[Rfam]
About this RNA:
The record is a 71-nucleotide RNA from Chanos chanos, which matches "Small nucleolar RNA SNORD58" in Rfam. A search with the family's covariance model found it, with a score of 54 bits. Lineage of the source: Eukaryota > Metazoa > Craniata > Neopterygii > Chanos.

RNA sequence: GUACGGUGAUGACAAUCUUAGGACACCUUUGGAGGUCACGACCUAUGAAACGAAAGUGUAACCUGAGUACG
Numbered sequence: 001g002u003a004c005g006g007u008g009a010u011g012a013c014a015a016u017c018u019u020a021g022g023a024c025a026c027c028u029u030u031g032g033a034g035g036u037c038a039c040g041a042c043c044u045a046u047g048a049a050a051c052g053a054a055a056g057u058g059u060a061a062c063c064u065g066a067g068u069a070c071g
Stems, first nucleotide, its partner, number of pairs: 001070004